A member of the RNA family "Small nucleolar RNA SNORD19" from Ophiophagus hannah, 76 nucleotides long. Rfam classes the family as a C/D-box small nucleolar RNA.
RNA sequence: GAGCUAUGAGGAGGCUAUAAAAUGUGCUGACCUACAUCUGGAGACUGUCAGAUCCAACUCUGAGCUCACUCUGCCU
Numbered sequence: 001g002a003g004c005u006a007u008g009a010g011g012a013g014g015c016u017a018u019a020a021a022a023u024g025u026g027c028u029g030a031c032c033u034a035c036a037u038c039u040g041g042a043g044a045c046u047g048u049c050a051g052a053u054c055c056a057a058c059u060c061u062g063a064g065c066u067c068a069c070u071c072u073g074c075c076u
Base pairs, nucleotide, nucleotide: 001067002066003065004064